[Rfam]
The family of this 61-nucleotide RNA from Corchorus capsularis is "Plastid-psbN 5UTR RNA". Plastid psbN is a non-coding RNA (ncRNA) recognised in plastids. It was reported as a conserved 11 stem-loop in the prime untranslated region (5UTR) of psbN genes. It has been reported that the motif is retained in a subset of mature transcripts in barley, which can suggests a possible role in transcript alternative 5 prime processing. The organism belongs to Corchorus, within Eukaryota.
RNA sequence: UGCGACACCCAUCAAAGGAGUCGUUCCCCAUCCAGGAGCUACUUUACCAUUCUAUAAAUAA
Numbered sequence: 001u002g003c004g005a006c007a008c009c010c011a012u013c014a015a016a017g018g019a020g021u022c023g024u025u026c027c028c029c030a031u032c033c034a035g036g037a038g039c040u041a042c043u044u045u046a047c048c049a050u051u052c053u054a055u056a057a058a059u060a061a
Stems, first nucleotide, its partner, number of pairs: 017045005023039005